Overview
This 183-nucleotide RNA from Mycobacterium triviale belongs to the Rfam family "M-box riboswitch aptamer (ykoK leader)". The source organism's lineage runs through Bacteria, Bacillati, Actinomycetota, Mycobacterium and Mycobacterium (subgen. Mycolicibacillus). M-box riboswitch, also know as ykoK leader is described as a metaloregulatory RNA that sense divalent metals and function as a genetic control element of genes related to divalent metal transport in bacteria. It was first reported upstream of the B.subtilis ykoK gene and genes with related functions in other bacteria. The literature on the family includes a 2004 paper in Proc Natl Acad Sci U S A by Barrick et al., "New RNA motifs suggest an expanded scope for riboswitches in bacterial genetic control".
RNA sequence: UAGGCACCUCGUUAGGUGAGGCUUCUGCAGGGACACAGGCCACUGACCCCGAACGUCGAAAGACGCCCCGGGUCAGGACAGCUCCUCCCGGGUUAAGGGUUGAGCCCAAGUGGCUUCCACGAUUCCGUCGGGAUCGGGUGGAUACGCCCGGCAGUGUCGAAACUCUGACGAGUGGGGUGCGUC
Numbered sequence: 001u002a003g004g005c006a007c008c009u010c011g012u013u014a015g016g017u018g019a020g021g022c023u024u025c026u027g028c029a030g031g032g033a034c035a036c037a038g039g040c041c042a043c044u045g046a047c048c049c050c051g052a053a054c055g056u057c058g059a060a061a062g063a064c065g066c067c068c069c070g071g072g073u074c075a076g077g078a079c080a081g082c083u084c085c086u087c088c089c090g091g092g093u094u095a096a097g098g099g100u101u102g103a104g105c106c107c108a109a110g111u112g113g114c115u116u117c118c119a120c121g122a123u124u125c126c127g128u129c130g131g132g133a134u135c136g137g138g139u140g141g142a143u144a145c146g147c148c149c150g151g152c153a154g155u156g157u158c159g160a161a162a163c164u165c166u167g168a169c170g171a172g173u174g175g176g177g178u179g180c181g182u183c
Stems, first nucleotide, its partner, number of pairs: 005179006011169002013096001015164003020158003025154004030149003039114005045074005054065004081105004087099003116142005